The record is a 137-nucleotide sequence from Clostridium sp. JN-9, which matches "c-di-AMP riboswitch aptamer (ydaO/yuaA leader)" in Rfam. It scores 86 bits against the family's covariance model. Rfam's curators write: This family represents a conserved RNA structure found upstream of the ydaO and yuaA genes in Bacillus subtilis and related genes in other bacteria.
RNA sequence: AUAUUAAUUGUGCUGAAUCUCAGAAAUGAGUACGGAGGAACCAAGAAAAUGGGGCUAAUCUGAAAUAACCAUAUUUCAGUAGAAUAACCUUCAUUCGAGCCCGUCAGCUAACUCCGAAGGCAAUAGGGGGGUAAUCA
Number, nucleotide and partner (000 for none) at each position: 001a000002u000003a000004u000005u000006a000007a000008u000009u000010g000011u122012g121013c120014u119015g000016a000017a000018u000019c030020u029021c000022a000023g000024a000025a000026a000027u000028g000029a020030g019031u000032a000033c116034g115035g114036a113037g112038g000039a000040a000041c000042c051043a050044a000045g000046a000047a000048a000049a000050u043051g042052g102053g101054g100055c000056u000057a000058a000059u000060c079061u078062g077063a076064a075065a074066u073067a072068a000069c000070c000071a000072u067073a066074u065075u064076u063077c062078a061079g060080u000081a000082g096083a095084a094085u093086a000087a000088c000089c000090u000091u000092c000093a085094u084095u083096c082097g000098a000099g000100c054101c053102c052103g000104u000105c000106a000107g000108c000109u000110a000111a000112c037113u036114c035115c034116g033117a000118a000119g014120g013121c012122a011123a000124u000125a000126g000127g000128g000129g000130g000131g000132u000133a000134a000135u000136c000137a000